[Rfam]
The family of this 82-nucleotide RNA sequence from Callosobruchus maculatus is "Small nucleolar RNA snR60/Z15/Z230/Z193/J17". Its Rfam clan is "SNORD77 clan". For this family Rfam cites "A computational screen for methylation guide snoRNAs in yeast" (Lowe and Eddy, Science, 1999). The match comes from Rfam's covariance-model search (53 bits). The pairing is the family consensus, mapped onto this sequence. Rfam classes the family as a C/D-box small nucleolar RNA. Lineage of the source: Eukaryota > Ecdysozoa > Panarthropoda > Neuropteroidea > Callosobruchus.
RNA sequence: AAUGUUAUUCAUGAUGACUGCAUAGUUCAGAUGAAGUCAAAUGAUUACAUCUUUUAUCUUUCGCUCCUAUCUGAAUAUUUUG
Numbered sequence: 001a002a003u004g005u006u007a008u009u010c011a012u013g014a015u016g017a018c019u020g021c022a023u024a025g026u027u028c029a030g031a032u033g034a035a036g037u038c039a040a041a042u043g044a045u046u047a048c049a050u051c052u053u054u055u056a057u058c059u060u061u062c063g064c065u066c067c068u069a070u071c072u073g074a075a076u077a078u079u080u081u082g
Stems, first nucleotide, its partner, number of pairs: 004079001006077003